[Rfam]
RNA sequence: GAACCCCAUGCGGGAGAGUCUUCCGAACGUCCGGGUAGCCGGGCGGGACGGAGGCGCCGAAGGAGCAAAUCCUCCCCGGAAUCUCUCAGGCAUCCGUACCGCAUGGGUCAG
Dot-bracket structure: .....((((((((......((((((.......................)))))).(((((..(((....(.......)....))))).))).......)))))))).....
Numbered sequence: 001g002a003a004c005c006c007c008a009u010g011c012g013g014g015a016g017a018g019u020c021u022u023c024c025g026a027a028c029g030u031c032c033g034g035g036u037a038g039c040c041g042g043g044c045g046g047g048a049c050g051g052a053g054g055c056g057c058c059g060a061a062g063g064a065g066c067a068a069a070u071c072c073u074c075c076c077c078g079g080a081a082u083c084u085c086u087c088a089g090g091c092a093u094c095c096g097u098a099c100c101g102c103a104u105g106g107g108u109c110a111g
Stems, first nucleotide, its partner, number of pairs: 006106008020054006056091003059087002063085003070078001